[Rfam]
RNA sequence: GAAUUUAUUAUUUUUAUAUAUAGUGUAUUGUGACAGUAAUCCAACUUGGUACGAGAGGAUUAGUUGGUUCAGACAGUUGGUACAGCAAUUGGUUGACAAACCAGUGUUGCGAAGCUACGUCUGUUGGAUAAUGGCUGAACGCCUCUUAAGCCAGAACCCAUGCUGAUUAAACAAUAUUAUUUUGUCUUUUUUGUACAACUUUUACUGCGAAAUGUAAAAGAGAAAAUAUACAUAUUCAUAACCAAAAUGGUUAUAAUAUAAAUAUUCCUAUAAACUCAUAUAGUUGACUCUUAUUUUAUAUAAGAGUCUUCCUUAAUGAGCGAACGUAAUUUAACAACGAAAAAGAAAUACACAAACUGUAGACGACUUUUUAAUCUGGGGGUGCUGUAAACAUGAAAGUAAACCCUGUUUUACGAUCUGUUGAGGCUUAUCCUUCCUGAUAAAGUGUUA
Numbered sequence: 001g002a003a004u005u006u007a008u009u010a011u012u013u014u015u016a017u018a019u020a021u022a023g024u025g026u027a028u029u030g031u032g033a034c035a036g037u038a039a040u041c042c043a044a045c046u047u048g049g050u051a052c053g054a055g056a057g058g059a060u061u062a063g064u065u066g067g068u069u070c071a072g073a074c075a076g077u078u079g080g081u082a083c084a085g086c087a088a089u090u091g092g093u094u095g096a097c098a099a100a101c102c103a104g105u106g107u108u109g110c111g112a113a114g115c116u117a118c119g120u121c122u123g124u125u126g127g128a129u130a131a132u133g134g135c136u137g138a139a140c141g142c143c144u145c146u147u148a149a150g151c152c153a154g155a156a157c158c159c160a161u162g163c164u165g166a167u168u169a170a171a172c173a174a175u176a177u178u179a180u181u182u183u184g185u186c187u188u189u190u191u192u193g194u195a196c197a198a199c200u201u202u203u204a205c206u207g208c209g210a211a212a213u214g215u216a217a218a219a220g221a222g223a224a225a226a227u228a229u230a231c232a233u234a235u236u237c238a239u240a241a242c243c244a245a246a247a248u249g250g251u252u253a254u255a256a257u258a259u260a261a262a263u264a265u266u267c268c269u270a271u272a273a274a275c276u277c278a279u280a281u282a283g284u285u286g287a288c289u290c291u292u293a294u295u296u297u298a299u300a301u302a303a304g305a306g307u308c309u310u311c312c313u314u315a316a317u318g319a320g321c322g323a324a325c326g327u328a329a330u331u332u333a334a335c336a337a338c339g340a341a342a343a344a345g346a347a348a349u350a351c352a353c354a355a356a357c358u359g360u361a362g363a364c365g366a367c368u369u370u371u372u373a374a375u376c377u378g379g380g381g382g383u384g385c386u387g388u389a390a391a392c393a394u395g396a397a398a399g400u401a402a403a404c405c406c407u408g409u410u411u412u413a414c415g416a417u418c419u420g421u422u423g424a425g426g427c428u429u430a431u432c433c434u435u436c437c438u439g440a441u442a443a444a445g446u447g448u449u450a
Base pairs, nucleotide, nucleotide: 025177026176027175028174029173030172031171034165035164036163037162039069041067042066043065044064045063046062070123071122072121073120074119078117079116080115085110086109087108088107089104090103091102092101093100094099125160126159127158132153133152134151135150136149185346186345187344188343189342190341191340192339193338194337350448351447352446353445355371356370359367375440376439378437379436380434381433382432384427385426391421392420393419396417399414400413401412402411403410